The record is a 54-nucleotide sequence from Probosciger aterrimus, which matches "Avian HBV RNA encapsidation signal epsilon" in Rfam. A search with the family's covariance model found it, with a score of 46 bits. The family's RNA type in Rfam is cis-regulatory element. Clan: Hepadnavirus_epsilon clan. For this family Rfam cites "Sequence- and structure-specific determinants in the interaction between the RNA encapsidation signal and reverse transcriptase of avian hepatitis B viruses" (Beck and Nassal, J Virol, 1997).
RNA sequence: UACCAAGGUAUCUUUAUGUCGUUCUUGCUGUUGUUUUGUGCUGUACCUUCGGUA
Numbered sequence: 001u002a003c004c005a006a007g008g009u010a011u012c013u014u015u016a017u018g019u020c021g022u023u024c025u026u027g028c029u030g031u032u033g034u035u036u037u038g039u040g041c042u043g044u045a046c047c048u049u050c051g052g053u054a
Base pairs, nucleotide, nucleotide: 001054002053003052004051006049007047008046009045010044011043018041020040027034028033